[Rfam]
This 77-nucleotide RNA sequence from Strongylus vulgaris belongs to the Rfam family "Nematode snoRNA ceN22". It is annotated as a C/D-box small nucleolar RNA. Lineage of the source: Eukaryota > Metazoa > Eumetazoa > Ecdysozoa > Strongylus.
RNA sequence: CUUGUUGGCUAGUGAUGAUACUUGUCUUAGGAAGUGCCGUCUGAGAAUUGAUGCUUACAAUUAGGACGCUGAAGCCG
Numbered sequence: 001c002u003u004g005u006u007g008g009c010u011a012g013u014g015a016u017g018a019u020a021c022u023u024g025u026c027u028u029a030g031g032a033a034g035u036g037c038c039g040u041c042u043g044a045g046a047a048u049u050g051a052u053g054c055u056u057a058c059a060a061u062u063a064g065g066a067c068g069c070u071g072a073a074g075c076c077g
Stems, first nucleotide, its partner, number of pairs: 007076004